[Rfam]
RNA sequence: GGCCCCAUCGUCUAGUGGCCUAGGACGCCGCCCUCUCACGGCGGUAACGGGGGUUCGAAUCCCCCUGGGGUCA
Number, nucleotide and partner (000 for none) at each position: 001g072002g071003c070004c069005c068006c067007a066008u000009c000010g026011u025012c024013u023014a000015g000016u000017g000018g000019c000020c000021u000022a000023g013024g012025a011026c010027g000028c044029c043030g042031c041032c040033c000034u000035c000036u000037c000038a000039c000040g032041g031042c030043g029044g028045u000046a000047a000048c000049g065050g064051g063052g062053g061054u000055u000056c000057g000058a000059a000060u000061c053062c052063c051064c050065c049066u007067g006068g005069g004070g003071u002072c001073a000
The family of this 73-nucleotide RNA sequence from Marinithermus hydrothermalis is "tRNA". From the family's description: Transfer RNA (tRNA) molecules are approximately 80 nucleotides in length. Their secondary structure includes four short double-helical elements and three loops (D, anti-codon, and T loops). Further hydrogen bonds mediate the characteristic L-shaped molecular structure. tRNAs have two regions of fundamental functional importance: the anti-codon, which is responsible for specific mRNA codon recognition, and the 3' end, to which the tRNAs corresponding amino acid is attached (by aminoacyl-tRNA synthetases). tRNAs cope with the degeneracy of the genetic code in two manners: having more than one tRNA (with a specific anti-codon) for a particular amino acid; and 'wobble' base-pairing, i.e. permitting non-standard base-pairing at the 3rd anti-codon position. Taxonomically the source falls in Marinithermus hydrothermalis (Bacteria, Thermotogati, Thermales, Marinithermus). By type it is a transfer RNA. The base pairs follow the family's consensus structure, which is taken from published work.